[Rfam]
RNA sequence: AGCGCGAUCGGGUCCACCGCGCGCGUCACCGUGAGGUAGUCACGGAUCACGAUGCCGUGCCGGUUCUC
Number, nucleotide and partner (000 for none) at each position: 001a000002g000003c000004g000005c062006g061007a000008u059009c000010g000011g030012g029013u028014c000015c000016a026017c025018c000019g000020c000021g000022c000023g000024c000025g017026u016027c000028a013029c012030c011031g000032u000033g000034a000035g056036g055037u054038a053039g000040u052041c051042a000043c000044g048045g000046a000047u000048c044049a000050c000051g041052a040053u038054g037055c036056c035057g000058u000059g008060c000061c006062g005063g000064u000065u000066c000067u000068c000
This 68-nucleotide RNA sequence from Actinomadura barringtoniae belongs to the Rfam family "ASdes TB sRNA". Rfam classes the family as a small RNA. Rfam 15.1 lists 1,192 matches to the family in 825 species.